[Rfam]
Nucleotides: 265
Stems, first nucleotide, its partner, number of pairs: 001265006009057003012030004017025003034054005063258006072249004080242002084238003088234002092232002095228002098225003103220002107216002114212009123200006129191002132189004137182006148173003156165003
Number, partner (000 for none) and nucleotide at each position: 001265c002264c003263g004262u005261g006260c007000u008000a009057g010056a011055u012030g013029g014028g015027g016000a017025g018024u019023u020000a021000g022000c023019g024018g025017u026000g027015c028014c029013c030012u031000g032000u033000a034054c035053c036052c037051g038050c039000a040000a041000u042000c043000c044000g045000c046000u047000c048000u049000a050038g051037c052036g053035g054034g055011a056010u057009c058000g059000a060000a061000u062000c063258c064257c065256c066255g067254c068253c069000c070000g071000a072249g073248g074247u075246c076000c077000g078000a079000a080242g081241c082000g083000u084238u085237c086236g087000a088234g089233c090000g091000a092232u093231g094000g095228c096227c097000u098225g099224u100223g101000a102000u103220c104219g105000g106000u107216g108215u109000g110000u111000u112000g113000a114212u115211g116210g117209u118208c119207g120206g121205g122204u123200c124199c125198u126197g127196c128195g129191c130190a131000a132189g133188g134187a135186g136000a137182g138181u139180u140179u141178g142177u143000g144000a145000a146000c147000c148173c149172c150171g151000c152000c153000a154000g155000a156165u157164c158163c159000g160000g161000a162000a163158g164157g165156a166000a167000g168000c169000a170000a171150c172149g173148g174000u175000a176000a177142a178141c179140a180139g181138a182137c183000a184000c185000g186135c187134u188133c189132c190130u191129g192000u193000g194000c195128c196127g197126c198125g199124g200123g201000g202000a203000a204122g205121c206120u207119c208118g209117g210116c211115c212114g213000g214000a215108g216107c217000c218000u219104c220103g221000g222000u223100c224099a225098c226000c227096g228095g229000u230000a231093c232092a233089g234088c235000c236086c237085g238084g239000c240000a241081g242080c243000c244000a245000c246075g247074a248073u249072c250000g251000a252000c253068g254067g255066c256065g257064g258063g259000u260006g261005c262004a263003c264002g265001g
The family of this 265-nucleotide sequence from Candidatus Methylomirabilis lanthanidiphila is "Bacterial large signal recognition particle RNA". For this family Rfam cites "SRPDB: Signal Recognition Particle Database" (Rosenblad et al., Nucleic Acids Res, 2003). The signal recognition particle (SRP) is a universally conserved ribonucleoprotein involved in the co-translational targeting of proteins to membranes. Gene Ontology terms of the family: signal recognition particle, plasma membrane targeting and SRP-dependent cotranslational protein targeting to membrane, signal sequence recognition. It is annotated as a non-coding RNA gene. A search with the family's covariance model found it, with a score of 189 bits.